[Rfam]
RNA sequence: GGGGAGCGGGAUACGGGGCCGGAACACUGCCUGAGAGGUCCGUAACGAUUCUCACAGUGAACCGGUCUCUUUUCCCGCCCCCUG
Numbered sequence: 001g002g003g004g005a006g007c008g009g010g011a012u013a014c015g016g017g018g019c020c021g022g023a024a025c026a027c028u029g030c031c032u033g034a035g036a037g038g039u040c041c042g043u044a045a046c047g048a049u050u051c052u053c054a055c056a057g058u059g060a061a062c063c064g065g066u067c068u069c070u071u072u073u074c075c076c077g078c079c080c081c082c083u084g
Stems, first nucleotide, its partner, number of pairs: 006078005015069007025059005033053003
Description: The record is an 84-nucleotide RNA sequence from Gadus morhua, which matches "mir-128 microRNA precursor family" in Rfam. The base pairs follow the family's consensus structure, which was predicted with RNAalifold. Rfam 15.1 lists 1,337 matches to the family in 643 species.